[Rfam]
Nucleotides: 095
Base pairs, nucleotide, nucleotide: 001095002094003093004092005091006090007089008088011029012028013027014026015025019080020079021078031065038057039056040055041054070087071086072085073084074083
Number, partner (000 for none) and nucleotide at each position: 001095c002094g003093c004092a005091g006090u007089g008088g009000a010000g011029g012028g013027c014026a015025g016000a017000a018000a019080g020079g021078c022000a023000a024000u025015c026014u027013g028012c029011c030000g031065c032000c033000c034000g035000g036000a037000a038057g039056c040055g041054a042000g043000a044000c045000c046000g047000c048000a049000a050000a051000u052000a053000c054041u055040c056039g057038c058000a059000u060000u061000g062000u063000u064000g065031g066000a067000g068000a069000u070087g071086c072085c073084g074083g075000a076000g077000c078021g079020c080019c081000g082000a083074c084073c085072g086071g087070c088008u089007c090006a091005c092004u093003g094002c095001g
Source information:
The family of this 95-nucleotide RNA sequence is "skipping-rope RNA". It is annotated as a small RNA. Rfam's curators put it in the seed alignment.